[Rfam]
RNA sequence: ACUCGAUAAUAGCAAAAUUAGUGAAAGCUAAUGACGCAAAACUACAGGGACUAACAUGUUUUUAACAUAAUGUCAGCCAGUUGCCGAA
Numbered sequence: 001a002c003u004c005g006a007u008a009a010u011a012g013c014a015a016a017a018u019u020a021g022u023g024a025a026a027g028c029u030a031a032u033g034a035c036g037c038a039a040a041a042c043u044a045c046a047g048g049g050a051c052u053a054a055c056a057u058g059u060u061u062u063u064a065a066c067a068u069a070a071u072g073u074c075a076g077c078c079a080g081u082u083g084c085c086g087a088a
Stems, first nucleotide, its partner, number of pairs: 012037002017032006040082004047078002049074003056068004
Record summary: The family of this 88-nucleotide sequence from Clostridium grantii is "c-di-GMP-I riboswitch aptamer". Taxonomically the source falls in Clostridium grantii (Bacteria, Bacillota, Clostridiaceae, Clostridium). About the family: GEMM was predicted in a large-scale screen for bacterial structured RNA regulatory elements. Genes associated with GEMM are involved in a diverse array of functions, including chemotaxis regulation, signal transduction, secretion and chitin.